[Rfam]
RNA sequence: GUCCUCAUCAACGCUGCGUUUCUAUGCUACAAACAGAUUUGCGCCGGCCUGUGCUGUGCUGCGCUUAUCAGAUCUUCAGAUCGUCCCUUUGCAUAUGAGAAAUUCGGAGUACUCUUCACACCUACCUCCCUCCUGCUCGCGCAGUGCACAGGUCUGCCCGCGAGGGUUCGGCGCGAUGUCGCGUCUGCAAUUGGCAUCAGAAAAGCAGGAGCAAGCCUUGUCUCCGUCUGGGGGCGGGUGACUUGUUAUCCUUUGGGAGAGCCGUUGCGGAGAUUGUGUGUGCUACGGCAUGACACUUAAGUGCAAUACGCAGCGUGCCUUUCUCUCUUGGUGCUUUGUCGCUGAGAGAGAGGCACAAUUCGAUUCCGAUUACUCUGAUGGGGAC
Numbered sequence: 001g002u003c004c005u006c007a008u009c010a011a012c013g014c015u016g017c018g019u020u021u022c023u024a025u026g027c028u029a030c031a032a033a034c035a036g037a038u039u040u041g042c043g044c045c046g047g048c049c050u051g052u053g054c055u056g057u058g059c060u061g062c063g064c065u066u067a068u069c070a071g072a073u074c075u076u077c078a079g080a081u082c083g084u085c086c087c088u089u090u091g092c093a094u095a096u097g098a099g100a101a102a103u104u105c106g107g108a109g110u111a112c113u114c115u116u117c118a119c120a121c122c123u124a125c126c127u128c129c130c131u132c133c134u135g136c137u138c139g140c141g142c143a144g145u146g147c148a149c150a151g152g153u154c155u156g157c158c159c160g161c162g163a164g165g166g167u168u169c170g171g172c173g174c175g176a177u178g179u180c181g182c183g184u185c186u187g188c189a190a191u192u193g194g195c196a197u198c199a200g201a202a203a204a205g206c207a208g209g210a211g212c213a214a215g216c217c218u219u220g221u222c223u224c225c226g227u228c229u230g231g232g233g234g235c236g237g238g239u240g241a242c243u244u245g246u247u248a249u250c251c252u253u254u255g256g257g258a259g260a261g262c263c264g265u266u267g268c269g270g271a272g273a274u275u276g277u278g279u280g281u282g283c284u285a286c287g288g289c290a291u292g293a294c295a296c297u298u299a300a301g302u303g304c305a306a307u308a309c310g311c312a313g314c315g316u317g318c319c320u321u322u323c324u325c326u327c328u329u330g331g332u333g334c335u336u337u338g339u340c341g342c343u344g345a346g347a348g349a350g351a352g353g354c355a356c357a358a359u360u361c362g363a364u365u366c367c368g369a370u371u372a373c374u375c376u377g378a379u380g381g382g383g384a385c
Stems, first nucleotide, its partner, number of pairs: 001385004008378003013314007023095004036082006105368005114272004156167004170185005187268004193263003207252003315356013
Shown here is a 385-nucleotide RNA sequence from Diplocarpon coronariae, a member of the family "Nuclear RNase P". Ribonuclease P (RNase P) is a ubiquitous endoribonuclease, found in archaea, bacteria and eukarya as well as chloroplasts and mitochondria. Clan: RNaseP clan. It scores 48 bits against the family's covariance model.